[Rfam]
Rfam assigns this 269-nucleotide RNA sequence from Dipodomys ordii to the family "Small Cajal body specific RNA 6".
By type it is a small Cajal body RNA.
Rfam's curators write: U88 is small Cajal body specific RNA (scaRNA). scaRNAs are a novel class of small nuclear RNAs which localise to the Cajal bodies. U88 is found associated with both fibrillarin and Gar1p and co-localises with coilin in Cajal bodies.
RNA sequence: GGUCAGUGAUGAUUGGUAAAAGGUCUGAUUGCACUGAAUGUCACAGUUCCUUCCUGCCCUCAACUCCCAGCAGCCUAGUUUUUCCCUUGCACAUUGAAGUCAUGUGUAUAGGUAAUGAGCUGCUGAUAGUUUGGGAUUCUGUCAUUCUGUGUUCCAAGAGUAAGUGGUUCACAGUGAUGGGUAUAUCCAACAGCACCAGCUUCACAGGAGCCUGAGGAGCGGCAGGAAGGGUGUGACAGUGCAUGAUCUCAAGUUUUCAAUCUGAGACC
Number, nucleotide and partner (000 for none) at each position: 001g269002g268003u267004c266005a000006g000007u000008g000009a000010u000011g000012a000013u000014u000015g000016g000017u000018a000019a000020a000021a000022g000023g000024u000025c000026u000027g000028a000029u000030u000031g000032c000033a000034c000035u000036g000037a000038a249039u000040g247041u246042c245043a000044c000045a000046g000047u224048u000049c222050c221051u000052u219053c000054c000055u000056g000057c000058c000059c000060u000061c000062a000063a000064c210065u209066c208067c207068c125069a124070g123071c122072a121073g120074c119075c000076u000077a000078g000079u000080u000081u000082u000083u000084c000085c112086c111087u110088u000089g109090c000091a107092c106093a105094u104095u000096g000097a000098a000099g000100u000101c000102a000103u000104g094105u093106g092107u091108a000109u089110a087111g086112g085113u000114a000115a000116u000117g000118a000119g074120c073121u072122g071123c070124u069125g068126a000127u000128a000129g000130u000131u000132u000133g188134g000135g187136a186137u185138u000139c000140u183141g000142u000143c000144a000145u000146u000147c000148u173149g172150u171151g170152u000153u000154c167155c166156a000157a000158g000159a000160g000161u000162a000163a000164g000165u000166g155167g154168u000169u000170c151171a150172c149173a148174g000175u000176g000177a000178u000179g000180g000181g000182u000183a140184u000185a137186u136187c135188c133189a000190a000191c000192a000193g000194c000195a000196c000197c000198a000199g000200c000201u000202u000203c000204a000205c000206a000207g067208g066209a065210g064211c000212c000213u000214g000215a000216g000217g000218a000219g052220c000221g050222g049223c000224a047225g000226g000227a000228a000229g000230g000231g000232u000233g000234u000235g000236a000237c000238a000239g000240u000241g000242c000243a000244u000245g042246a041247u040248c000249u038250c000251a000252a000253g000254u000255u000256u000257u000258c000259a000260a000261u000262c000263u000264g000265a000266g004267a003268c002269c001

The source organism's lineage runs through Eukaryota, Opisthokonta, Metazoa, Chordata and Dipodomys. The family's consensus secondary structure is taken from published work. The literature on the family includes a 2002 paper in EMBO J by Darzacq et al., "Cajal body-specific small nuclear RNAs: a novel class of 2'-O-methylation and pseudouridylation guide RNAs".